A member of the RNA family "mir-9215 microRNA precursor family" from Pipistrellus kuhlii, 85 nucleotides long.
Rfam links the family to the GO terms miRNA-mediated post-transcriptional gene silencing and RISC complex.
A search with the family's covariance model found it, with a score of 100 bits.
RNA sequence: UGAAGUGCUCCAACACUAGAACAUGUGGCUGCCAUGGGUUGGUGGGAACCAGGCUUGCCCAGAGUCAGUGUUACCAGUAUUCAGU
Numbered sequence: 001u002g003a004a005g006u007g008c009u010c011c012a013a014c015a016c017u018a019g020a021a022c023a024u025g026u027g028g029c030u031g032c033c034a035u036g037g038g039u040u041g042g043u044g045g046g047a048a049c050c051a052g053g054c055u056u057g058c059c060c061a062g063a064g065u066c067a068g069u070g071u072u073a074c075c076a077g078u079a080u081u082c083a084g085u
Base pairs, nucleotide, nucleotide: 001083002082003081004080006079007078008077009076012072013071014070015069016068017067019066024061025060027059028058029057031054032053033052037050038049039048040047